[Rfam]
RNA: Small nucleolar RNA SNORA13
Organism: Cyprinus carpio
RNA sequence: UGCCUUUUGUGUUACCCAUUCUUUUCACUUCCUCUAAAGAAUGUGGUGUCAGCAAAGGCAUACAGUAAAACUCUUGGUUUGGCCUUUACAAAGUGAUUUCUGUGUAUCACCUUGUCUAAAGCUCAUGCCAAGUACAACA
Number, nucleotide and partner (000 for none) at each position: 001u000002g059003c058004c057005u056006u055007u054008u000009g000010u051011g050012u000013u048014a047015c046016c045017c043018a042019u041020u040021c039022u038023u037024u036025u000026c000027a000028c000029u000030u000031c000032c000033u000034c000035u000036a024037a023038a022039g021040a020041a019042u018043g017044u000045g016046g015047u014048g013049u000050c011051a010052g000053c000054a007055a006056a005057g004058g003059c002060a000061u000062a000063c000064a000065g000066u000067a000068a000069a000070a000071c000072u000073c132074u131075u130076g129077g000078u000079u127080u000081g000082g124083c000084c000085u000086u119087u118088a117089c000090a115091a000092a112093g111094u000095g000096a107097u106098u000099u000100c000101u000102g000103u000104g000105u000106a097107u096108c000109a000110c000111c093112u092113u000114g000115u090116c000117u088118a087119a086120a000121g000122c000123u000124c082125a000126u000127g079128c000129c076130a075131a074132g073133u000134a000135c000136a000137a000138c000139a000